[Rfam]
RNA sequence: CUCUUAUCCAGAGAGGCGGAGGGACUGGCCCAGUGAAACCUCGGCAACCAUUGGAUCCUGAAACAGGAUUUGAACGGUGCCAACUCCAGCAGUGCGUAUGCGCUGAAAGAUAAGAG
Numbered sequence: 001c002u003c004u005u006a007u008c009c010a011g012a013g014a015g016g017c018g019g020a021g022g023g024a025c026u027g028g029c030c031c032a033g034u035g036a037a038a039c040c041u042c043g044g045c046a047a048c049c050a051u052u053g054g055a056u057c058c059u060g061a062a063a064c065a066g067g068a069u070u071u072g073a074a075c076g077g078u079g080c081c082a083a084c085u086c087c088a089g090c091a092g093u094g095c096g097u098a099u100g101c102g103c104u105g106a107a108a109g110a111u112a113a114g115a116g
Base pairs, nucleotide, nucleotide: 001116002115003114004113005112006111007110008109013042014041015040016039021031022030023029025089026088027087028086043081044080045079046078048077049076051072053070085108090105091104092103093102094101095100
Source information
This 116-nucleotide RNA sequence from Aneurinibacillus danicus belongs to the Rfam family "SAM riboswitch aptamer (S box leader)". The source organism's lineage runs through Bacteria, Bacillati, Bacilli, Paenibacillaceae and Aneurinibacillus. It scores 90 bits against the family's covariance model.